c-di-GMP-I riboswitch aptamer: an 88-nucleotide RNA from Neomoorella thermoacetica. It is one of the family's seed sequences. Rfam's curators write: GEMM was predicted in a large-scale screen for bacterial structured RNA regulatory elements. Its family is annotated with cyclic-di-GMP binding in the Gene Ontology.
RNA sequence: AUCAACAAAGGGCAAACCUGUCGAAAGGCAGGGACGCAAAGCCAUGGGCCUAAAGCCCGACAAGGGCUAUGGUUGCCAGGUUGCCGGU
Numbered sequence: 001a002u003c004a005a006c007a008a009a010g011g012g013c014a015a016a017c018c019u020g021u022c023g024a025a026a027g028g029c030a031g032g033g034a035c036g037c038a039a040a041g042c043c044a045u046g047g048g049c050c051u052a053a054a055g056c057c058c059g060a061c062a063a064g065g066g067c068u069a070u071g072g073u074u075g076c077c078a079g080g081u082u083g084c085c086g087g088u
Base pairs, nucleotide, nucleotide: 012037013036017032018031019030020029021028022027040082041081042080043079045078046077047076048073049072050071055067056066057065058064